[Rfam]
RNA sequence: UCCUUAUCAAGAGCGGCGGAGGGACUAGGCCCUUUGAUGCCCGGCAACCUGGAAGUCAGGCGGCGUAUGGCCGAUGACAGGCAAGGUGCCAAAUCCUACAGAAUCUAGUAUUCUGAAAGAUGAGGA
Numbered sequence: 001u002c003c004u005u006a007u008c009a010a011g012a013g014c015g016g017c018g019g020a021g022g023g024a025c026u027a028g029g030c031c032c033u034u035u036g037a038u039g040c041c042c043g044g045c046a047a048c049c050u051g052g053a054a055g056u057c058a059g060g061c062g063g064c065g066u067a068u069g070g071c072c073g074a075u076g077a078c079a080g081g082c083a084a085g086g087u088g089c090c091a092a093a094u095c096c097u098a099c100a101g102a103a104u105c106u107a108g109u110a111u112u113c114u115g116a117a118a119g120a121u122g123a124g125g126a
Stems, first nucleotide, its partner, number of pairs: 001126008013042001015041003021032003026098004043090004048086002051082001094118001099115006
The record is a 126-nucleotide sequence from Aminicella lysinilytica, which matches "SAM riboswitch aptamer (S box leader)" in Rfam. From the family's description: The SAM riboswitch is found upstream of a number of genes which code for proteins involved in methionine or cysteine biosynthesis in Gram-positive bacteria. The family's consensus secondary structure is taken from published work. The match comes from Rfam's covariance-model search (85 bits). The source organism's lineage runs through Bacteria, Bacillati, Bacillota, Clostridia and Aminicella.